[Rfam]
RNA sequence: ACCUAUGAUGUGUUGCCCAAAUUGUGAGAUGUAGGUAGCUCCAAGUCCCUGUUAUUCAGGGAGAACCUACUUGGGGUUCCUACAUUCUAAUGAGAUUAAUGGGCUUUUGCUGAGGU
Numbered sequence: 001a002c003c004u005a006u007g008a009u010g011u012g013u014u015g016c017c018c019a020a021a022u023u024g025u026g027a028g029a030u031g032u033a034g035g036u037a038g039c040u041c042c043a044a045g046u047c048c049c050u051g052u053u054a055u056u057c058a059g060g061g062a063g064a065a066c067c068u069a070c071u072u073g074g075g076g077u078u079c080c081u082a083c084a085u086u087c088u089a090a091u092g093a094g095a096u097u098a099a100u101g102g103g104c105u106u107u108u109g110c111u112g113a114g115g116u
Stems, first nucleotide, its partner, number of pairs: 001116003047061005
This 116-nucleotide sequence from Zizania palustris belongs to the Rfam family "Small nucleolar RNA Z278". About the family: snoZ278 is a C/D box small nucleolar RNA. Its methylation guide targets have not been reported. By type it is a C/D-box small nucleolar RNA. A search with the family's covariance model found it, with a score of 78 bits. NCBI's taxonomy places the organism under Eukaryota, Embryophyta, Tracheophyta, Oryzoideae, Zizania.